Rfam assigns this 89-nucleotide RNA sequence from Anolis carolinensis to the family "mir-5444 microRNA precursor family". The base pairs follow the family's consensus structure, which was predicted with RNAalifold. Its family is annotated with miRNA-mediated post-transcriptional gene silencing and RISC complex in the Gene Ontology.

RNA sequence: AGGUGCUUCUUUCAGGUUCUUUCAGCAAGGAUUAAGGUCUGAGAGUCCAAGAGUUUAGUCCAUGCUGGAAGAGCAUGAAGAAAGCAGCA
Number, nucleotide and partner (000 for none) at each position: 001a000002g000003g000004u086005g085006c084007u083008u082009c000010u080011u079012u078013c077014a076015g000016g074017u073018u072019c071020u070021u069022u068023c067024a066025g065026c064027a063028a000029g061030g060031a059032u058033u057034a056035a055036g054037g000038u052039c051040u000041g000042a000043g000044a000045g000046u000047c000048c000049a000050a000051g039052a038053g000054u036055u035056u034057a033058g032059u031060c030061c029062a000063u027064g026065c025066u024067g023068g022069a021070a020071g019072a018073g017074c016075a000076u014077g013078a012079a011080g010081a000082a008083a007084g006085c005086a004087g000088c000089a000